[Rfam]
RNA: Purine riboswitch aptamer
Organism: Paenibacillus whitsoniae
RNA sequence: AUUGAAAAUGUCGAAACCACUCGUAUAAAAUCAGGGAUAAGGCCUGAAAGUUUCUACCCAAAAACCAUGAAUUUUUGGACUACGAGGAAACGAAUGAUGAAC
Numbered sequence: 001a002u003u004g005a006a007a008a009u010g011u012c013g014a015a016a017c018c019a020c021u022c023g024u025a026u027a028a029a030a031u032c033a034g035g036g037a038u039a040a041g042g043c044c045u046g047a048a049a050g051u052u053u054c055u056a057c058c059c060a061a062a063a064a065c066c067a068u069g070a071a072u073u074u075u076u077g078g079a080c081u082a083c084g085a086g087g088a089a090a091c092g093a094a095u096g097a098u099g100a101a102c
Stems, first nucleotide, its partner, number of pairs: 020086006031047005058078007